[Rfam]
RNA sequence: GCUGAUGAAAUGAUGUUAACAAAAGGCCGAAUUGUAGCUCUUCCAUCAAGCAGUUUGUUCUUGGUAUGGAUAGAGCUUUGACAAAAACUAGACCGAAGCGUUUAACUGAUGUGUCAGC
Numbered sequence: 001g002c003u004g005a006u007g008a009a010a011u012g013a014u015g016u017u018a019a020c021a022a023a024a025g026g027c028c029g030a031a032u033u034g035u036a037g038c039u040c041u042u043c044c045a046u047c048a049a050g051c052a053g054u055u056u057g058u059u060c061u062u063g064g065u066a067u068g069g070a071u072a073g074a075g076c077u078u079u080g081a082c083a084a085a086a087a088c089u090a091g092a093c094c095g096a097a098g099c100g101u102u103u104a105a106c107u108g109a110u111g112u113g114u115c116a117g118c
Stems, first nucleotide, its partner, number of pairs: 001118007015106003026035002036102003042096002047091001049089002053076002056072005077087002
Small nucleolar RNA SNORD89: a 118-nucleotide RNA sequence from Sinocyclocheilus rhinocerous. Gene Ontology terms of the family: RNA processing and nucleolus. It is annotated as a C/D-box small nucleolar RNA. The literature on the family includes a 2001 paper in EMBO J by Huttenhofer et al., "RNomics: an experimental approach that identifies 201 candidates for novel, small, non-messenger RNAs in mouse". The family's consensus secondary structure was predicted with RNAalifold. About the family: snoRNA HBII-289 belongs to the family of C/D snoRNAs. It is the human orthologue of the mouse MBII-289 and has no identified RNA target.